Archaeal small subunit ribosomal RNA: a 501-nucleotide part of an RNA from Ferroplasma sp. Type II.
The base pairs follow the family's consensus structure, which is taken from published work.
For this family Rfam cites "The comparative RNA web (CRW) site: an online database of comparative sequence and structure information for ribosomal, intron, and other RNAs" (Cannone et al., BMC Bioinformatics, 2002).
The family has 86 seed sequences and 709 matches in Rfam 15.1.
[Rfam]
RNA sequence: ACUCCGGUUGAUCCUGCCGGCGGCCACCGCUAUCAAGUUCCGACUAAGCCAUGCGAGUCAAGGUAUCGUAAGAUGCCGGCAAACUGCUCAGUAACACGUGGAUAAUCUAACCUUGAGUAAGGGAUAACCUCGGGAAACUGAGGAUAAUACCUUAUAAUUGCUUAAAACUGGAAUGUUUAAGCAAUAAAAGUUCAGACGCUCAAGGAUGAGUCUGCGACCUAUCAGGUAGUAGGUGGUGUAAUGGACCACCUAGCCUCAGACGGGUACGGGCCCUGGGAGGGGUAGCCCGGAGAUGGACUCUGAGACAUAAGUCCAGGCCCUACGGGGCGCAGCAGGCGCGAACACUGUGCAAUGCGCGAAAGCGCGACACGGGGAGCUUGAGUGUCUUGGCAUAGCCAAGACUUUUCUCAUUCCUAAAAAGCAUGAGGAAUAAGUGCUGGGUAAGACGGGUGCCAGCCGCCGCGGUAACACCCGCAGCACAAGUGGUGGUCACUUUUAUUG
Numbered sequence: 001a002c003u004c005c006g007g008u009u010g011a012u013c014c015u016g017c018c019g020g021c022g023g024c025c026a027c028c029g030c031u032a033u034c035a036a037g038u039u040c041c042g043a044c045u046a047a048g049c050c051a052u053g054c055g056a057g058u059c060a061a062g063g064u065a066u067c068g069u070a071a072g073a074u075g076c077c078g079g080c081a082a083a084c085u086g087c088u089c090a091g092u093a094a095c096a097c098g099u100g101g102a103u104a105a106u107c108u109a110a111c112c113u114u115g116a117g118u119a120a121g122g123g124a125u126a127a128c129c130u131c132g133g134g135a136a137a138c139u140g141a142g143g144a145u146a147a148u149a150c151c152u153u154a155u156a157a158u159u160g161c162u163u164a165a166a167a168c169u170g171g172a173a174u175g176u177u178u179a180a181g182c183a184a185u186a187a188a189a190g191u192u193c194a195g196a197c198g199c200u201c202a203a204g205g206a207u208g209a210g211u212c213u214g215c216g217a218c219c220u221a222u223c224a225g226g227u228a229g230u231a232g233g234u235g236g237u238g239u240a241a242u243g244g245a246c247c248a249c250c251u252a253g254c255c256u257c258a259g260a261c262g263g264g265u266a267c268g269g270g271c272c273c274u275g276g277g278a279g280g281g282g283u284a285g286c287c288c289g290g291a292g293a294u295g296g297a298c299u300c301u302g303a304g305a306c307a308u309a310a311g312u313c314c315a316g317g318c319c320c321u322a323c324g325g326g327g328c329g330c331a332g333c334a335g336g337c338g339c340g341a342a343c344a345c346u347g348u349g350c351a352a353u354g355c356g357c358g359a360a361a362g363c364g365c366g367a368c369a370c371g372g373g374g375a376g377c378u379u380g381a382g383u384g385u386c387u388u389g390g391c392a393u394a395g396c397c398a399a400g401a402c403u404u405u406u407c408u409c410a411u412u413c414c415u416a417a418a419a420a421g422c423a424u425g426a427g428g429a430a431u432a433a434g435u436g437c438u439g440g441g442u443a444a445g446a447c448g449g450g451u452g453c454c455a456g457c458c459g460c461c462g463c464g465g466u467a468a469c470a471c472c473c474g475c476a477g478c479a480c481a482a483g484u485g486g487u488g489g490u491c492a493c494u495u496u497u498a499u500u501g
Stems, first nucleotide, its partner, number of pairs: 004020005022491010033381009042339001048337003052334003057080003062077006087292003097216007106209002111205007119153004128143006158184008167176002190197002218264003225255003230252008267289004271282004294315006317328004345371001347370003353366005384402008407427005413421001434480006447474004456463002